[Rfam]
Nucleotides: 149
Base pairs, nucleotide, nucleotide: 011134012133013132014131018043019042020041044129045128046127047126048125049124054066055065067114068113069112075090076089077088078087093108094107095106096105
Number, partner (000 for none) and nucleotide at each position: 001000g002000g003000c004000c005000g006000g007000a008000c009000a010000c011134c012133g013132c014131c015000g016000a017000a018043c019042c020041g021000c022000g023000c024000g025000c026000g027000g028000c029000c030000g031000a032000g033000c034000g035000c036000c037000g038000c039000a040000g041020c042019g043018g044129a045128c046127c047126g048125g049124g050000g051000a052000c053000c054066c055065a056000u057000g058000g059000a060000u061000c062000c063000u064000c065055u066054g067114g068113g069112g070000u071000g072000a073000a074000u075090c076089c077088u078087g079000c080000g081000c082000g083000u084000g085000c086000g087078c088077a089076g090075g091000u092000a093108g094107g095106g096105c097000a098000a099000c100000u101000u102000c103000c104000g105096g106095c107094c108093c109000g110000a111000a112069c113068c114067c115000g116000u117000c118000a119000g120000c121000u122000a123000a124049c125048u126047c127046g128045g129044u130000a131014g132013g133012c134011g135000g136000c137000u138000g139000a140000g141000g142000a143000a144000g145000a146000a147000c148000g149000g